[Rfam]
RNA sequence: CCACAUCACCCAUCACUCGGAUCGUCCGGCACGUACCUGCCGGUGAAGGGAAACAUCA
Numbered sequence: 001c002c003a004c005a006u007c008a009c010c011c012a013u014c015a016c017u018c019g020g021a022u023c024g025u026c027c028g029g030c031a032c033g034u035a036c037c038u039g040c041c042g043g044u045g046a047a048g049g050g051a052a053a054c055a056u057c058a
Stems, first nucleotide, its partner, number of pairs: 009050003013046003026043006
Dot-bracket structure: ........(((.(((..........((((((......))))))))).)))........
This 58-nucleotide RNA from Aeromicrobium sp. Root344 belongs to the Rfam family "msiK RNA". It is annotated as a cis-regulatory element. A search with the family's covariance model found it, with a score of 61 bits. The source organism's lineage runs through Bacteria, Bacillati, Actinomycetes, Propionibacteriales and Aeromicrobium. The family's consensus secondary structure is taken from published work.